Source information:
This 87-nucleotide RNA sequence from Gossypium lobatum belongs to the Rfam family "MIR7486 microRNA precursor family". Rfam links the family to the GO terms miRNA-mediated post-transcriptional gene silencing and RISC complex.
[Rfam]
RNA sequence: CACGUCAGCACGAAAUGCUGAUGUGGAAGGAAAUCGCUUCCUCAAGGACGCAAUUUUCUUCCACGUCAGCAUCUCGCGCUGAAGUGG
Numbered sequence: 001c002a003c004g005u006c007a008g009c010a011c012g013a014a015a016u017g018c019u020g021a022u023g024u025g026g027a028a029g030g031a032a033a034u035c036g037c038u039u040c041c042u043c044a045a046g047g048a049c050g051c052a053a054u055u056u057u058c059u060u061c062c063a064c065g066u067c068a069g070c071a072u073c074u075c076g077c078g079c080u081g082a083a084g085u086g087g
Base pairs, nucleotide, nucleotide: 001086002085003084005082006081007080008079009078011076012075013074015072016071017070018069019068020067021066023064024063025062026061027060028059029058030057031056032055033054034053036051037050040047041046

The match comes from Rfam's covariance-model search (79 bits). Lineage of the source: Eukaryota > Embryophyta > Spermatophyta > Gunneridae > Gossypium.